[Rfam]
RNA sequence: UAAGGAGUAGUAUAAAGGAAGUACAAAGGGUUUUGAUCUCUUAAGUAUAGGUUCAAUUCCUAUCUCUUUAG
Numbered sequence: 001u002a003a004g005g006a007g008u009a010g011u012a013u014a015a016a017g018g019a020a021g022u023a024c025a026a027a028g029g030g031u032u033u034u035g036a037u038c039u040c041u042u043a044a045g046u047a048u049a050g051g052u053u054c055a056a057u058u059c060c061u062a063u064c065u066c067u068u069u070a071g
Stems, first nucleotide, its partner, number of pairs: 001070007010024004026042005047063005
RNA: tRNA